[Rfam]
RNA sequence: GUGUUUUUGCUUGGGGCAAUGACUGCUAGUGAGGUUCUAACUGAGGCAAGUCUAUUGCUGGUUGAAAACUAUUUUCAAACCUCCUCUUUGGCCUGGGUUCGCCCCUGGCAGAUGAGAAUUUUUGGAAUGGCUCCCUUCGGAGUUAUGCC
Numbered sequence: 001g002u003g004u005u006u007u008u009g010c011u012u013g014g015g016g017c018a019a020u021g022a023c024u025g026c027u028a029g030u031g032a033g034g035u036u037c038u039a040a041c042u043g044a045g046g047c048a049a050g051u052c053u054a055u056u057g058c059u060g061g062u063u064g065a066a067a068a069c070u071a072u073u074u075u076c077a078a079a080c081c082u083c084c085u086c087u088u089u090g091g092c093c094u095g096g097g098u099u100c101g102c103c104c105c106u107g108g109c110a111g112a113u114g115a116g117a118a119u120u121u122u123u124g125g126a127a128u129g130g131c132u133c134c135c136u137u138c139g140g141a142g143u144u145a146u147g148c149c
Stems, first nucleotide, its partner, number of pairs: 021052004025047003033042003084116003088112002091109003095105001096103002129149003
Dot-bracket structure: ....................(((((((.....(((....)))..))).))))...............................(((.((.(((.(((....)).).))).)).)))............(((...............)))
RNA: U4 spliceosomal RNA
Organism: Nicotiana sylvestris